[Rfam]
RNA sequence: AACAAUUUGUCCCGCGUCCCACGGAGUUUUAAAAAAGUCCCUAAAGAAAAAAAAGAUUCUUUCCAAAAAUAGGGACUUUUUUUAAAACGCCGUGGGAUGCGGGACAAAUUGUUAA
Numbered sequence: 001a002a003c004a005a006u007u008u009g010u011c012c013c014g015c016g017u018c019c020c021a022c023g024g025a026g027u028u029u030u031a032a033a034a035a036a037g038u039c040c041c042u043a044a045a046g047a048a049a050a051a052a053a054a055g056a057u058u059c060u061u062u063c064c065a066a067a068a069a070u071a072g073g074g075a076c077u078u079u080u081u082u083u084a085a086a087a088c089g090c091c092g093u094g095g096g097a098u099g100c101g102g103g104a105c106a107a108a109u110u111g112u113u114a115a
Stems, first nucleotide, its partner, number of pairs: 001113024026088012

About this RNA
This 115-nucleotide sequence from Cnephaeus nilssonii belongs to the Rfam family "mir-9261 microRNA precursor family". Lineage of the source: Eukaryota > Bilateria > Gnathostomata > Vespertilionidae > Cnephaeus.